Nucleotides: 101
Stems, first nucleotide, its partner, number of pairs: 001097008011088001014085001016080004022075001031063003035059002
Number, partner (000 for none) and nucleotide at each position: 001097g002096g003095c004094u005093g006092g007091u008090c009000c010000c011088a012000g013000u014085g015000c016080a017079g018078u019077g020000a021000u022075g023000u024000u025000u026000a027000c028000c029000a030000c031063a032062a033061u034000u035059g036058a037000u038000g039000a040000c041000a042000a043000c044000c045000a046000g047000u048000u049000a050000c051000a052000g053000a054000u055000u056000u057000c058036u059035u060000u061033g062032u063031u064000c065000c066000u067000u068000c069000u070000c071000c072000a073000c074000u075022c076000c077019c078018a079017c080016u081000g082000c083000u084000u085014c086000a087000c088011u089000u090008g091007a092006c093005u094004a095003g096002c097001c098000u099000a100000a101000a
Record summary: Shown here is a 101-nucleotide sequence from Cebus imitator, a member of the family "Y RNA". On this family, see Teunissen et al., Nucleic Acids Res 2000: "Conserved features of Y RNAs: a comparison of experimentally derived secondary structures". Lineage of the source: Eukaryota > Bilateria > Vertebrata > Gnathostomata > Cebus. From the family's description: Y RNAs are components of the Ro ribonucleoprotein particle (Ro RNP), in association with Ro60 and La proteins. The Y RNAs and Ro60 and La proteins are well conserved, but the function of the Ro RNP is not known. In humans the RNA component can be one of four small RNAs -- hY1, hY3, hY4 and hY5. These small RNAs are predicted to fold into a conserved secondary structure containing three stem structures. The largest of the four, hY1, contains an additional hairpin. This family includes a significant number of annotated pseudogenes and the model is expected to discriminate poorly between real and Y RNA related pseudogenes.